About this RNA:
The family of this 92-nucleotide RNA sequence from Tropicibacter naphthalenivorans is "Rhodo-rpoB RNA". NCBI's taxonomy places the organism under Bacteria, Pseudomonadati, Alphaproteobacteria, Rhodobacterales, Tropicibacter. It scores 64 bits against the family's covariance model.
[Rfam]
RNA sequence: GGAUCGAGUGGCGCGCGGUGGGACGCGUGCCGAGAAUGGAUCCGGAUUUUUGCCGUCACUGACGAGGCGCGCCGUAGCCCGACGGCGCGUGU
Numbered sequence: 001g002g003a004u005c006g007a008g009u010g011g012c013g014c015g016c017g018g019u020g021g022g023a024c025g026c027g028u029g030c031c032g033a034g035a036a037u038g039g040a041u042c043c044g045g046a047u048u049u050u051u052g053c054c055g056u057c058a059c060u061g062a063c064g065a066g067g068c069g070c071g072c073c074g075u076a077g078c079c080c081g082a083c084g085g086c087g088c089g090u091g092u
Base pairs, nucleotide, nucleotide: 001043002042003041004040005039010031011030012029013028014027015026016025017024065092067090068089069088070087071086072085073084074083